[Rfam]
RNA sequence: GACCGUGAACUGAGGGGAAAUGUCUCCCCCUUCAGAUCCGGCAGCGGAAUUUUCCGCUCAUUACCAUCACAAGGAG
Number, nucleotide and partner (000 for none) at each position: 001g000002a000003c041004c040005g039006u000007g038008a037009a000010c035011u034012g033013a032014g031015g030016g029017g028018a000019a000020a000021u000022g000023u000024c000025u000026c000027c000028c017029c016030c015031u014032u013033c012034a011035g010036a000037u008038c007039c005040g004041g003042c000043a000044g000045c000046g000047g000048a000049a000050u000051u000052u000053u000054c000055c000056g000057c000058u000059c000060a000061u000062u000063a000064c000065c000066a000067u000068c000069a000070c000071a000072a000073g000074g000075a000076g000

About this RNA:
The record is a 76-nucleotide RNA sequence from Syntrophotalea acetylenica, which matches "L20-Deltaproteobacteria ribosomal protein leader" in Rfam. The base pairs follow the family's consensus structure, which is taken from published work.